MIR2275 microRNA precursor family: a 98-nucleotide RNA sequence from Triticum aestivum. A search with the family's covariance model found it, with a score of 71 bits. Gene Ontology terms of the family: RISC complex and miRNA-mediated post-transcriptional gene silencing. Lineage of the source: Eukaryota > Streptophyta > Mesangiospermae > Pooideae > Triticum.
[Rfam]
RNA sequence: GCACUGAAAGUGAGUAUUGGAGGAAAGCAAACUGGAAAUCCGUCUCAAAGUGCUCAUGUUUUCCAGCUUGUUUUUCUCCAAUAUCUCACUUUCGGUCA
Numbered sequence: 001g002c003a004c005u006g007a008a009a010g011u012g013a014g015u016a017u018u019g020g021a022g023g024a025a026a027g028c029a030a031a032c033u034g035g036a037a038a039u040c041c042g043u044c045u046c047a048a049a050g051u052g053c054u055c056a057u058g059u060u061u062u063c064c065a066g067c068u069u070g071u072u073u074u075u076c077u078c079c080a081a082u083a084u085c086u087c088a089c090u091u092u093c094g095g096u097c098a
Stems, first nucleotide, its partner, number of pairs: 004095005011088004016082006023075008032066005